[Rfam]
RNA: Small nucleolar SNORD12/SNORD106
Nucleotides: 089
Base pairs, nucleotide, nucleotide: 001089002088003087004086005085006084007083009081
Number, partner (000 for none) and nucleotide at each position: 001089g002088c003087u004086g005085g006084u007083g008000g009081a010000g011000g012000u013000g014000a015000u016000g017000g018000c019000g020000g021000u022000u023000u024000u025000u026000u027000c028000c029000u030000c031000g032000u033000c034000a035000g036000a037000g038000c039000g040000a041000c042000g043000g044000u045000g046000u047000c048000g049000a050000u051000c052000u053000c054000u055000c056000g057000c058000u059000g060000c061000u062000c063000a064000a065000g066000c067000c068000a069000g070000g071000a072000c073000g074000a075000g076000u077000c078000u079000g080000a081009u082000g083007c084006a085005c086004c087003g088002g089001c